[Rfam]
Singlet oxygen resistance RNA X: an 86-nucleotide RNA sequence from Paracoccus aminovorans.
The base pairs follow the family's consensus structure.
RNA sequence: AUCUCGAAGGCGGUGAUACGAGGAAACUCUCAUCACCUUCAACCUCCCUGUUGGACUUGAGCCGGGCUUCGUGCCCGGCUUUUUUU
Numbered sequence: 001a002u003c004u005c006g007a008a009g010g011c012g013g014u015g016a017u018a019c020g021a022g023g024a025a026a027c028u029c030u031c032a033u034c035a036c037c038u039u040c041a042a043c044c045u046c047c048c049u050g051u052u053g054g055a056c057u058u059g060a061g062c063c064g065g066g067c068u069u070c071g072u073g074c075c076c077g078g079c080u081u082u083u084u085u086u
Base pairs, nucleotide, nucleotide: 006040007039008038009037010036060080061079062078063077064076065075066074067073
The source organism's lineage runs through Bacteria, Pseudomonadota, Alphaproteobacteria, Rhodobacterales and Paracoccus. Its family is annotated with response to photooxidative stress in the Gene Ontology. Rfam's curators write: SorX (RSs2461)like SorY is a singlet oxygen induced sRNA that counteracts oxidative stress by targeting mRNA for a transporter in Rhodobacter. It also has an impact on resistance against organic hydroperoxides. It targets SD sequence of potA mRNA via an aSD sequence. The aSD sequence and some neighbouring nucleotides are identical to the one of SorY (targets takP mRNA). By type it is a small RNA.